A member of the RNA family "MIR1120/MIR1122 microRNA precursor family" from Triticum urartu, 87 nucleotides long.
Taxonomically the source falls in Triticum (Eukaryota, Streptophytina, Liliopsida, Triticodae).
RNA sequence: UUACUCCCUCCGUUCCAUAAUGUAAGAUGUUUUUUGACACUACACUAGUAUCAAAAAACGUCUUACGUUAUGGGACGGAGGGAGUAG
Numbered sequence: 001u002u003a004c005u006c007c008c009u010c011c012g013u014u015c016c017a018u019a020a021u022g023u024a025a026g027a028u029g030u031u032u033u034u035u036g037a038c039a040c041u042a043c044a045c046u047a048g049u050a051u052c053a054a055a056a057a058a059c060g061u062c063u064u065a066c067g068u069u070a071u072g073g074g075a076c077g078g079a080g081g082g083a084g085u086a087g
Stems, first nucleotide, its partner, number of pairs: 003085003007081005013075005019069019039049003